[Rfam]
RNA sequence: AUGUGAAGAAAAAAAUAGACUUGUAUAACCUCAAUAAUAUGGUUUGAGGGUUUCUACCAGGAUCCGAUAAAUCCUGAUUACAAAAGCGCGCUUUUCCUUU
Dot-bracket structure: ....................(((((...((((((.........))))))........((((((.......))))))..))))).................
Numbered sequence: 001a002u003g004u005g006a007a008g009a010a011a012a013a014a015a016u017a018g019a020c021u022u023g024u025a026u027a028a029c030c031u032c033a034a035u036a037a038u039a040u041g042g043u044u045u046g047a048g049g050g051u052u053u054c055u056a057c058c059a060g061g062a063u064c065c066g067a068u069a070a071a072u073c074c075u076g077a078u079u080a081c082a083a084a085a086g087c088g089c090g091c092u093u094u095u096c097c098u099u100u
Stems, first nucleotide, its partner, number of pairs: 021083005029049006058076006
Rfam assigns this 100-nucleotide RNA sequence to the family "Purine riboswitch aptamer".
Rfam links the family to the GO term purine nucleobase biosynthetic process.